[Rfam]
RNA sequence: UGGCGCCCAACGUGGUGACUGGAUACUGGGGGCACAUUGUGAGGGAGACGGAGAAAAAGGAGUGCACUUGCUAAAUCUCAAGGAAUUCGGAGACGCGCUGUGGGAGCCUGCCGCGACCAAACCGAAAGUAAGUCAAUCCACCUGAUCAUGGGGCAAGAAUUGAGCCAGCAUCAGAUUUAUGCCAAGCAAUUGAGAGAGGCUCUAAAGACAUGAGGAGUAAAGGUUAGGACUGCAGAUUUACUUCAUUUCUUUGAUUUUGUAAAGGACAUUUAUCCCU
Numbered sequence: 001u002g003g004c005g006c007c008c009a010a011c012g013u014g015g016u017g018a019c020u021g022g023a024u025a026c027u028g029g030g031g032g033c034a035c036a037u038u039g040u041g042a043g044g045g046a047g048a049c050g051g052a053g054a055a056a057a058a059g060g061a062g063u064g065c066a067c068u069u070g071c072u073a074a075a076u077c078u079c080a081a082g083g084a085a086u087u088c089g090g091a092g093a094c095g096c097g098c099u100g101u102g103g104g105a106g107c108c109u110g111c112c113g114c115g116a117c118c119a120a121a122c123c124g125a126a127a128g129u130a131a132g133u134c135a136a137u138c139c140a141c142c143u144g145a146u147c148a149u150g151g152g153g154c155a156a157g158a159a160u161u162g163a164g165c166c167a168g169c170a171u172c173a174g175a176u177u178u179a180u181g182c183c184a185a186g187c188a189a190u191u192g193a194g195a196g197a198g199g200c201u202c203u204a205a206a207g208a209c210a211u212g213a214g215g216a217g218u219a220a221a222g223g224u225u226a227g228g229a230c231u232g233c234a235g236a237u238u239u240a241c242u243u244c245a246u247u248u249c250u251u252u253g254a255u256u257u258u259g260u261a262a263a264g265g266a267c268a269u270u271u272a273u274c275c276c277u
Base pairs, nucleotide, nucleotide: 006031007030008029012026013025014024037051038050039049040048086130088128099115100114101113102112103111137155139153141152142151143150144149161204162203164200165199166198211253212252213251214250215249216248217247221239222238223237224236225235262277264275265274266273
This 277-nucleotide sequence from Nannospalax galili belongs to the Rfam family "Mason-Pfizer monkey virus packaging signal". By type it is a cis-regulatory element. It scores 157 bits against the family's covariance model. The source organism's lineage runs through Eukaryota, Teleostomi, Dipnotetrapodomorpha, Myomorpha and Nannospalax.